[Rfam]
RNA sequence: GCAUUGGCCUAACUCAGUGGUUACUUCUGUCCCUCUAAGAAAGUAGCAUCCUGCAGACUGAGGACUGUGGGGUUCGACUUCGGGUGGUGUCCAGUGUUUUA
Number, nucleotide and partner (000 for none) at each position: 001g000002c096003a095004u094005u093006g092007g091008c000009c000010u000011a000012a085013c084014u083015c082016a000017g081018u000019g079020g078021u000022u000023a000024c000025u000026u077027c076028u000029g074030u000031c000032c000033c000034u000035c000036u000037a000038a000039g000040a000041a000042a000043g000044u000045a000046g000047c000048a000049u000050c000051c000052u000053g000054c000055a000056g000057a000058c000059u000060g000061a000062g000063g000064a000065c000066u000067g000068u000069g000070g000071g000072g000073u000074u029075c000076g027077a026078c020079u019080u000081c017082g015083g014084g013085u012086g000087g000088u000089g000090u000091c007092c006093a005094g004095u003096g002097u000098u000099u000100u000101a000